Shown here is a 79-nucleotide sequence from Oryza meyeriana, a member of the family "small nucleolar RNA snoR117". The family has 6 seed sequences and 419 matches in Rfam 15.1. Rfam links the family to the GO terms nucleolus and RNA processing. The base pairs follow the family's consensus structure, which was predicted with RNAalifold.
RNA sequence: GGCCUGUGAUUUGAGAUCAAUUGUCUGUACCAUCUGAUGUUCUUGAUGUUUCACAAUUGUCAAUUUAUCUAUGAGGCCC
Numbered sequence: 001g002g003c004c005u006g007u008g009a010u011u012u013g014a015g016a017u018c019a020a021u022u023g024u025c026u027g028u029a030c031c032a033u034c035u036g037a038u039g040u041u042c043u044u045g046a047u048g049u050u051u052c053a054c055a056a057u058u059g060u061c062a063a064u065u066u067a068u069c070u071a072u073g074a075g076g077c078c079c
Stems, first nucleotide, its partner, number of pairs: 001078004